The family of this 740-nucleotide sequence from Sanghuangporus baumii is "Nuclear RNase P". It scores 56 bits against the family's covariance model. Rfam classes the family as a ribozyme. Rfam describes the family as follows. Ribonuclease P (RNase P) is a ubiquitous endoribonuclease, found in archaea, bacteria and eukarya as well as chloroplasts and mitochondria. Its best characterised activity is the generation of mature 5'-ends of tRNAs by cleaving the 5'-leader elements of precursor-tRNAs. Taxonomically the source falls in Sanghuangporus (Eukaryota, Dikarya, Basidiomycota, Hymenochaetales).
RNA sequence: GCAGACCUAAGAUCGCAAUGCUUGCCACAGACGAGAUGACUAUGUCCAUCUUCAUUCCUUGCGAGCGGGUCAAGGUCUGAGUAUUCUAAUCCCCCUCGAUCGACUCUAGAUGAGUCCGAACAACAACGUUCGAGCUACGUACCAGAAAGCCAGCAGUCGCUGUCUCACGGGUGAAUAACUCGUGUCAGACACUUUCCUGAGACCCCCGGUUUUUCUAGGGAGAGGAAAGCGAUAGCUGCUUUGGAAUGCGUAGUGGGGAUUGGGUGGAUUGUCCUUUGAUGUGGUCUGUUUUCUGCGAGUCGCACGGUCGUCCAGAGCCUGUUUCCCUUUUGGCCGAGGGUGGGCAAUAUGUGUGGAAGGGUGAAUGUGUUUUCGCAUCAAGCGCUGGUCCGGGGCCCCAUUCUGCCAAGCAGCAAGCUUGCCGAACGGAUGAUCGCAGCGGUUGUUGCAUGUUGUGGGAGGCCAGCGCAAUUGCAUCAUGUCUUCUGCUGAUAAGUGGUUGGUAUGAAUACAAGUUGAUUCUUCCAUAGCAAAUAAGCACCGCCGUAUUCGAUUAUUUCGCGUCAAUCACUUGAUGUGUAACAGGUUGGGUUUCCCCGGAUUGGACGAACCGGAGACUCAGGAAGACGUAUAGACUACGAAUAGUACAUUUCGCCCUUCAGUUCAAUUUGCGAUGCCCAAAGAUUUCCACUUGAUUGAGGUUGCCAGGGCUAACUCAAUUCAGACUACUCCAGGUCUGC
Numbered sequence: 001g002c003a004g005a006c007c008u009a010a011g012a013u014c015g016c017a018a019u020g021c022u023u024g025c026c027a028c029a030g031a032c033g034a035g036a037u038g039a040c041u042a043u044g045u046c047c048a049u050c051u052u053c054a055u056u057c058c059u060u061g062c063g064a065g066c067g068g069g070u071c072a073a074g075g076u077c078u079g080a081g082u083a084u085u086c087u088a089a090u091c092c093c094c095c096u097c098g099a100u101c102g103a104c105u106c107u108a109g110a111u112g113a114g115u116c117c118g119a120a121c122a123a124c125a126a127c128g129u130u131c132g133a134g135c136u137a138c139g140u141a142c143c144a145g146a147a148a149g150c151c152a153g154c155a156g157u158c159g160c161u162g163u164c165u166c167a168c169g170g171g172u173g174a175a176u177a178a179c180u181c182g183u184g185u186c187a188g189a190c191a192c193u194u195u196c197c198u199g200a201g202a203c204c205c206c207c208g209g210u211u212u213u214u215c216u217a218g219g220g221a222g223a224g225g226a227a228a229g230c231g232a233u234a235g236c237u238g239c240u241u242u243g244g245a246a247u248g249c250g251u252a253g254u255g256g257g258g259a260u261u262g263g264g265u266g267g268a269u270u271g272u273c274c275u276u277u278g279a280u281g282u283g284g285u286c287u288g289u290u291u292u293c294u295g296c297g298a299g300u301c302g303c304a305c306g307g308u309c310g311u312c313c314a315g316a317g318c319c320u321g322u323u324u325c326c327c328u329u330u331u332g333g334c335c336g337a338g339g340g341u342g343g344g345c346a347a348u349a350u351g352u353g354u355g356g357a358a359g360g361g362u363g364a365a366u367g368u369g370u371u372u373u374c375g376c377a378u379c380a381a382g383c384g385c386u387g388g389u390c391c392g393g394g395g396c397c398c399c400a401u402u403c404u405g406c407c408a409a410g411c412a413g414c415a416a417g418c419u420u421g422c423c424g425a426a427c428g429g430a431u432g433a434u435c436g437c438a439g440c441g442g443u444u445g446u447u448g449c450a451u452g453u454u455g456u457g458g459g460a461g462g463c464c465a466g467c468g469c470a471a472u473u474g475c476a477u478c479a480u481g482u483c484u485u486c487u488g489c490u491g492a493u494a495a496g497u498g499g500u501u502g503g504u505a506u507g508a509a510u511a512c513a514a515g516u517u518g519a520u521u522c523u524u525c526c527a528u529a530g531c532a533a534a535u536a537a538g539c540a541c542c543g544c545c546g547u548a549u550u551c552g553a554u555u556a557u558u559u560c561g562c563g564u565c566a567a568u569c570a571c572u573u574g575a576u577g578u579g580u581a582a583c584a585g586g587u588u589g590g591g592u593u594u595c596c597c598c599g600g601a602u603u604g605g606a607c608g609a610a611c612c613g614g615a616g617a618c619u620c621a622g623g624a625a626g627a628c629g630u631a632u633a634g635a636c637u638a639c640g641a642a643u644a645g646u647a648c649a650u651u652u653c654g655c656c657c658u659u660c661a662g663u664u665c666a667a668u669u670u671g672c673g674a675u676g677c678c679c680a681a682a683g684a685u686u687u688c689c690a691c692u693u694g695a696u697u698g699a700g701g702u703u704g705c706c707a708g709g710g711c712u713a714a715c716u717c718a719a720u721u722c723a724g725a726c727u728a729c730u731c732c733a734g735g736u737c738u739g740c
Stems, first nucleotide, its partner, number of pairs: 001740004007734002012675007020066005034051005039045001077724005092258004102116005117132005134254007153239005676712001678710002